The family of this 164-nucleotide sequence from Brevibacillus borstelensis is "Ribosomal protein L10 leader". The source organism's lineage runs through Bacteria, Bacillati, Caryophanales, Brevibacillus and Brevibacillus borstelensis. This family is a putative r-protein leader autoregulatory structure found in B. subtilis and other low-GC Gram-positive bacteria. Pairs were carried over by alignment from the consensus structure, which was predicted with CMfinder. The family's RNA type in Rfam is cis-regulatory leader. It scores 58 bits against the family's covariance model.
[Rfam]
RNA sequence: UGAAAAGAAUAUGCCAUGCCGUAGACAGAAGGUGCAGAGCCCAAAAGCCCUGCUUAAUAUCCCUCCGAGGCGUGUAAUGAAGCGGAUAGAGGAAAUGCUAGAUUUCCUUUGACGAUAUACAUUAUGCCCUCGUAGAUGCUACGAGGGCAUUCUUUUUUCCAGGA
Numbered sequence: 001u002g003a004a005a006a007g008a009a010u011a012u013g014c015c016a017u018g019c020c021g022u023a024g025a026c027a028g029a030a031g032g033u034g035c036a037g038a039g040c041c042c043a044a045a046a047g048c049c050c051u052g053c054u055u056a057a058u059a060u061c062c063c064u065c066c067g068a069g070g071c072g073u074g075u076a077a078u079g080a081a082g083c084g085g086a087u088a089g090a091g092g093a094a095a096u097g098c099u100a101g102a103u104u105u106c107c108u109u110u111g112a113c114g115a116u117a118u119a120c121a122u123u124a125u126g127c128c129c130u131c132g133u134a135g136a137u138g139c140u141a142c143g144a145g146g147g148c149a150u151u152c153u154u155u156u157u158u159c160c161a162g163g164a
Stems, first nucleotide, its partner, number of pairs: 028065002031062002034053003125149010